A member of the RNA family "TPP riboswitch aptamer (THI element)", 135 nucleotides long.

RNA sequence: AGAAAGCACCAGGGGUGCCUGCGUCCUGCUUCAAAACUGGCCAUCUGGCUAGAGGAGGCAGCUGGCCAGGCUGAGAAAGUCCCUUUGAACCUGAACAGGAUAAUUCCUGCGUAGGGAGUGUGCAUUUUUUCUGUC
Numbered sequence: 001a002g003a004a005a006g007c008a009c010c011a012g013g014g015g016u017g018c019c020u021g022c023g024u025c026c027u028g029c030u031u032c033a034a035a036a037c038u039g040g041c042c043a044u045c046u047g048g049c050u051a052g053a054g055g056a057g058g059c060a061g062c063u064g065g066c067c068a069g070g071c072u073g074a075g076a077a078a079g080u081c082c083c084u085u086u087g088a089a090c091c092u093g094a095a096c097a098g099g100a101u102a103a104u105u106c107c108u109g110c111g112u113a114g115g116g117a118g119u120g121u122g123c124a125u126u127u128u129u130u131c132u133g134u135c
Stems, first nucleotide, its partner, number of pairs: 006123004011084004016078001017071005090115004096109004
Rfam links the family to the GO term thiamine pyrophosphate binding.